[Rfam]
RNA sequence: UCUUCAUUUCCCACACUUUCUCACUGGUCAAAUGGGCGAGAGCGUGUGUGAAAUGAAGAGA
Number, nucleotide and partner (000 for none) at each position: 001u059002c058003u057004u056005c055006a054007u053008u000009u000010c050011c000012c048013a047014c046015a045016c044017u000018u000019u041020c040021u039022c038023a000024c000025u000026g000027g000028u000029c000030a000031a000032a000033u000034g000035g000036g000037c000038g022039a021040g020041a019042g000043c000044g016045u015046g014047u013048g012049u000050g010051a000052a000053a007054u006055g005056a004057a003058g002059a001060g000061a000
RNA: mir-8364 microRNA precursor family
Organism: Pristionchus pacificus